[Rfam]
RNA: MIR2629 microRNA precursor family
RNA sequence: UACCGAGGUUUUUCUCGGUAGUUAACUGCAGUCGGUUUUUGAAUUCUUCGGCAGUUAACUGCCGAGGGGAAA
Numbered sequence: 001u002a003c004c005g006a007g008g009u010u011u012u013u014c015u016c017g018g019u020a021g022u023u024a025a026c027u028g029c030a031g032u033c034g035g036u037u038u039u040u041g042a043a044u045u046c047u048u049c050g051g052c053a054g055u056u057a058a059c060u061g062c063c064g065a066g067g068g069g070a071a072a
Stems, first nucleotide, its partner, number of pairs: 012068002015065015